[Rfam]
RNA: A. fumigatus sRNA Afu_309
Organism: Fusarium musae
RNA sequence: UCUCUUCAAGCAAACACGGAUCUGUGCCUAGCGAUCCCCUGCUCUUCGGAGUCAGGGUAGAUUGCUUUGCAGCUCGAUAACUUAUAAGGAGCCAUCAACUUGUUAUGGUGUCAAUCAUCCUAUCGACAGGUCCAAGAGUAACUGUUGCUUCAGCCGCUUCAUUCGCUGUCGAAAGACGGCUUGAGUGUCGAGGCUGUUGCAUAACGAGACGCUAUAUUCCACCCCCCUUUUCCGAGACCGUCGGUCGGUGAGGUUGGGGAAAACCAUGGCCUACCUACAUAU
Numbered sequence: 001u002c003u004c005u006u007c008a009a010g011c012a013a014a015c016a017c018g019g020a021u022c023u024g025u026g027c028c029u030a031g032c033g034a035u036c037c038c039c040u041g042c043u044c045u046u047c048g049g050a051g052u053c054a055g056g057g058u059a060g061a062u063u064g065c066u067u068u069g070c071a072g073c074u075c076g077a078u079a080a081c082u083u084a085u086a087a088g089g090a091g092c093c094a095u096c097a098a099c100u101u102g103u104u105a106u107g108g109u110g111u112c113a114a115u116c117a118u119c120c121u122a123u124c125g126a127c128a129g130g131u132c133c134a135a136g137a138g139u140a141a142c143u144g145u146u147g148c149u150u151c152a153g154c155c156g157c158u159u160c161a162u163u164c165g166c167u168g169u170c171g172a173a174a175g176a177c178g179g180c181u182u183g184a185g186u187g188u189c190g191a192g193g194c195u196g197u198u199g200c201a202u203a204a205c206g207a208g209a210c211g212c213u214a215u216a217u218u219c220c221a222c223c224c225c226c227c228u229u230u231u232c233c234g235a236g237a238c239c240g241u242c243g244g245u246c247g248g249u250g251a252g253g254u255u256g257g258g259g260a261a262a263a264c265c266a267u268g269g270c271c272u273a274c275c276u277a278c279a280u281a282u
Stems, first nucleotide, its partner, number of pairs: 018133008026070002030066002033063004037057005042051003078125001080123001083122002088112002091109003146201001150199001151196004161186004165180006208275001211270005224259004232253002236246004